[Rfam]
RNA sequence: UGUCGUCGAAGGAAAGCCUUAAUUCACGAUA
Numbered sequence: 001u002g003u004c005g006u007c008g009a010a011g012g013a014a015a016g017c018c019u020u021a022a023u024u025c026a027c028g029a030u031a
Base pairs, nucleotide, nucleotide: 001031002030003029004028005027006026008025009020010019011018012017

This 31-nucleotide RNA sequence from Taishania pollutisoli belongs to the Rfam family "S4-Flavobacteria ribosomal protein leader". The literature on the family includes a 2020 paper in BMC Microbiol by Eckert and Weinberg, "Discovery of 20 novel ribosomal leader candidates in bacteria and archaea". The source organism's lineage runs through Bacteria, Pseudomonadati, Bacteroidota, Flavobacteriia and Taishania.